[Rfam]
A member of the RNA family "PhotoRC-II RNA", 95 nucleotides long. By type it is a cis-regulatory element.
RNA sequence: UAACCGUUGUGAACACCCCGUAAACCGAGACCUCUAGGGUGUCUAAAUCACGUCUCUAAUAUCCUGUCUUAGGGUGACAGGAAAUAGUAACUCCA
Numbered sequence: 001u002a003a004c005c006g007u008u009g010u011g012a013a014c015a016c017c018c019c020g021u022a023a024a025c026c027g028a029g030a031c032c033u034c035u036a037g038g039g040u041g042u043c044u045a046a047a048u049c050a051c052g053u054c055u056c057u058a059a060u061a062u063c064c065u066g067u068c069u070u071a072g073g074g075u076g077a078c079a080g081g082a083a084a085u086a087g088u089a090a091c092u093c094c095a
Stems, first nucleotide, its partner, number of pairs: 014041005021036002027056005062082007